[Rfam]
RNA: TPP riboswitch aptamer (THI element)
RNA sequence: GGCUGUGACACGGGGUGCCUUCUUUUUCCCAAGAUGGCUGAGAACACACCCGUCGAACCUGCUCCAGUUAGCACUGGCGAAGGGACUGUCCAUACUCAACCGU
Numbered sequence: 001g002g003c004u005g006u007g008a009c010a011c012g013g014g015g016u017g018c019c020u021u022c023u024u025u026u027u028c029c030c031a032a033g034a035u036g037g038c039u040g041a042g043a044a045c046a047c048a049c050c051c052g053u054c055g056a057a058c059c060u061g062c063u064c065c066a067g068u069u070a071g072c073a074c075u076g077g078c079g080a081a082g083g084g085a086c087u088g089u090c091c092a093u094a095c096u097c098a099a100c101c102g103u
Base pairs, nucleotide, nucleotide: 007090008089009088010087011052012051013050014049016046017038018037019036021034022033023032024031058083059082060081064077065076066075067074